This 72-nucleotide sequence from Sitophilus oryzae belongs to the Rfam family "mir-219 microRNA precursor family". NCBI's taxonomy places the organism under Eukaryota, Eumetazoa, Pancrustacea, Allotriocarida, Sitophilus. The match comes from Rfam's covariance-model search (57 bits). Pairs were carried over by alignment from the consensus structure, which was predicted with RNAalifold.
RNA sequence: UCUGGCCUUGAUUGUCCGAACGCAAUUCUUGGUAUAUUUAAACAAGGAUUGUGUUGGGGCGUCAUUGCUAGG
Numbered sequence: 001u002c003u004g005g006c007c008u009u010g011a012u013u014g015u016c017c018g019a020a021c022g023c024a025a026u027u028c029u030u031g032g033u034a035u036a037u038u039u040a041a042a043c044a045a046g047g048a049u050u051g052u053g054u055u056g057g058g059g060c061g062u063c064a065u066u067g068c069u070a071g072g
Stems, first nucleotide, its partner, number of pairs: 002071005009064004014060004021053011